[Rfam]
RNA sequence: GGUCAUGAGUACCAGCGUCAAGCCCCGGCUAGCUGGUCGGCAACCCUCCUCCGCGGUGGGGUGCUCCGGGUGACGACCUGGCCGUGUGCGGACUCCCCGCCUCGGCAAGAGCGGAUU
Numbered sequence: 001g002g003u004c005a006u007g008a009g010u011a012c013c014a015g016c017g018u019c020a021a022g023c024c025c026c027g028g029c030u031a032g033c034u035g036g037u038c039g040g041c042a043a044c045c046c047u048c049c050u051c052c053g054c055g056g057u058g059g060g061g062u063g064c065u066c067c068g069g070g071u072g073a074c075g076a077c078c079u080g081g082c083c084g085u086g087u088g089c090g091g092a093c094u095c096c097c098c099g100c101c102u103c104g105g106c107a108a109g110a111g112c113g114g115a116u117u
Stems, first nucleotide, its partner, number of pairs: 001078004009038001011037006021030002039065003044061003048056002081106004086101001088100004
SAM (S-adenosyl methionine) riboswitch aptamer: a 117-nucleotide RNA sequence from Nocardia ignorata. It scores 107 bits against the family's covariance model. SAM-IV is a mRNA element that regulates gene expression via direct sensing of S-adenosylmethionine (SAM or AdoMet). SAM-IV riboswitches share conserved nucleotide positions with the previously described SAM-I riboswitches sequence analysis and molecular recognition experiments suggest that SAM-I and SAM-IV riboswitches share similar ligand binding sites, but have different scaffolds. The base pairs follow the family's consensus structure, which is taken from published work. Taxonomically the source falls in Nocardia (Bacteria, Actinomycetes, Mycobacteriales, Nocardiaceae).